[Rfam]
RNA sequence: AUUACCGGACUCACAAAACCCAACCCCAAGUUCGGUUGGUGCGUCUGUCCGGGUGGGGGCGUUCAGUAAACCGCCCAUCUUCAUCCCGCGAAAUCGCUUCGCGUGGAGUGUUUACGACAUAGGCUGAGGGAACAAGAAAAGCCACGGGUCACCCGACCCGUGGUCGUUAACUUGCAUAGACUCCCG
Dot-bracket structure: ....((((((..((.....((((((........))))))...))..))))))(...((((((.......).)))))..).......((...(...(.(..((...((((.((..(.......)..)).............(((((((((......))))))))).....))))))...).))..))
Numbered sequence: 001a002u003u004a005c006c007g008g009a010c011u012c013a014c015a016a017a018a019c020c021c022a023a024c025c026c027c028a029a030g031u032u033c034g035g036u037u038g039g040u041g042c043g044u045c046u047g048u049c050c051g052g053g054u055g056g057g058g059g060c061g062u063u064c065a066g067u068a069a070a071c072c073g074c075c076c077a078u079c080u081u082c083a084u085c086c087c088g089c090g091a092a093a094u095c096g097c098u099u100c101g102c103g104u105g106g107a108g109u110g111u112u113u114a115c116g117a118c119a120u121a122g123g124c125u126g127a128g129g130g131a132a133c134a135a136g137a138a139a140a141g142c143c144a145c146g147g148g149u150c151a152c153c154c155g156a157c158c159c160g161u162g163g164u165c166g167u168u169a170a171c172u173u174g175c176a177u178a179g180a181c182u183c184c185c186g
Stems, first nucleotide, its partner, number of pairs: 005052006013044002020039006053079001057076005062070001087186002092182001096181001098179001101175002106173004111127002115123001141164009

This 186-nucleotide RNA from Natronosalvus rutilus belongs to the Rfam family "Sense overlapping transcript RNA 2652 (sot)". For this family Rfam cites "Sense overlapping transcripts in IS1341-type transposase genes are functional non-coding RNAs in archaea" (Gomes-Filho et al., RNA Biol, 2015). About the family: It is associated with IS1341-type transposase (tnpB) genes, at the 3'-end in H. salinarum NRC-1. The tetraloop structural motif may be functional. It is annotated as a small RNA. Pairs were carried over by alignment from the consensus structure, which was predicted with RNAfold. The organism belongs to Natronosalvus, within Archaea.